The family of this 120-nucleotide sequence from Hominimerdicola alba is "FMN riboswitch aptamer (RFN element)". Taxonomically the source falls in Hominimerdicola alba (Bacteria, Clostridia, Eubacteriales, Oscillospiraceae).

[Rfam]
RNA sequence: AUCCAUCUUCAGGGCAGGGUGUGAUUCCUGACCGGCAGUUAAAGUCUGCGAGCCGCUUUUGGCGGUUGACCCGUUGAAAUUACGGGACCGACGGUAUAGUCCGGAUGAGAGAAGAUAUAU
Numbered sequence: 001a002u003c004c005a006u007c008u009u010c011a012g013g014g015c016a017g018g019g020u021g022u023g024a025u026u027c028c029u030g031a032c033c034g035g036c037a038g039u040u041a042a043a044g045u046c047u048g049c050g051a052g053c054c055g056c057u058u059u060u061g062g063c064g065g066u067u068g069a070c071c072c073g074u075u076g077a078a079a080u081u082a083c084g085g086g087a088c089c090g091a092c093g094g095u096a097u098a099g100u101c102c103g104g105a106u107g108a109g110a111g112a113a114g115a116u117a118u119a120u
Stems, first nucleotide, its partner, number of pairs: 005116006017029003031100002033090002035049004044088002052066003070086005092103003